[Rfam]
RNA sequence: CCUAUCAAUAUUGCCUCUGCUUUUCUCACUGUUUAUGGAGUAGUGCAAUAUUGCUUAUAGGGU
Numbered sequence: 001c002c003u004a005u006c007a008a009u010a011u012u013g014c015c016u017c018u019g020c021u022u023u024u025c026u027c028a029c030u031g032u033u034u035a036u037g038g039a040g041u042a043g044u045g046c047a048a049u050a051u052u053g054c055u056u057a058u059a060g061g062g063u
Stems, first nucleotide, its partner, number of pairs: 001061005006053009017043004021038001
Shown here is a 63-nucleotide RNA from Ictalurus punctatus, a member of the family "mir-454 microRNA precursor family".
Lineage of the source: Eukaryota > Opisthokonta > Teleostomi > Neopterygii > Ictalurus.
The sequence is in the family's curated seed alignment.
The family's consensus secondary structure was predicted with RNAalifold.